[Rfam]
RNA sequence: GGGGCUGCAUUGGUUUCGACGCGGGUUGGAAUCGUCGCGGUGCAUGUCGAGCUCAGUUUGCUCGUAAAACCGACUGAAACAAAGUAACUGCAAACGACGAACGUUUCGCACUCGCCGCUUAAACACCGGUGAGCCUCGCAACAGUCUGCCGACGGGCUGGGCAAGGGCAGCGCAAGCUGUCCAGGCUGCGAGGGAAUGCACAUCGGCUGGCUUGACUCCGGGCACCUUGGAGGCAAGCGAGAUUCAAGGGUGCUGGCGGUUCCGGUAGCGUGCGCCUGCGCGACCGGAACAGCGAGAUCCAAAUCAGAGCGCUAAACAUGUAGAUCUGCACGAGGAAGGUUCGCGGACGCGGGUUCAAAUCCCGCCAGCUCCACCA
Dot-bracket structure: (((((((............((((((((....((((.((((..((((([[[[[((((((.]]]]].......)))))).................................(((((((.........)))))))((((((........[[[[[...................................)))))).........]]]]]..(((((.(((.[[...[....))).)))))..........]...]].((.(((((((..(((.[[[[..[)))..))))))).))..........]....]]]]...))))).....))))))))....))))))))...(((((.......))))))))))))....